RNA sequence: GUAUUGAUAUCGGGAGAGACUGCAUUGAGUUGCGGCGCCGAAGGAGCAACCGCCCCGGAAACUCUCAGGCAAAAGAACCGGUAUCUCUUA
Numbered sequence: 001g002u003a004u005u006g007a008u009a010u011c012g013g014g015a016g017a018g019a020c021u022g023c024a025u026u027g028a029g030u031u032g033c034g035g036c037g038c039c040g041a042a043g044g045a046g047c048a049a050c051c052g053c054c055c056c057g058g059a060a061a062c063u064c065u066c067a068g069g070c071a072a073a074a075g076a077a078c079c080g081g082u083a084u085c086u087c088u089u090a
Base pairs, nucleotide, nucleotide: 006085007084008083009082010081011080012079013078020035021034022033023032037070038069039068040066041065044064045063046062050058051057
RNA: Glycine riboswitch aptamer
Organism: Polynucleobacter antarcticus